This 30-nucleotide sequence from Clostridium tyrobutyricum belongs to the Rfam family "CRISPR RNA direct repeat element".
The base pairs follow the family's consensus structure, which was predicted with WAR.
RNA sequence: AUUUAAAUACAUCUCAUGUUAAGGUUCAUU
Numbered sequence: 001a002u003u004u005a006a007a008u009a010c011a012u013c014u015c016a017u018g019u020u021a022a023g024g025u026u027c028a029u030u
Base pairs, nucleotide, nucleotide: 009019010018011017012016
The source organism's lineage runs through Bacteria, Bacillati, Bacillota, Clostridia and Clostridium tyrobutyricum.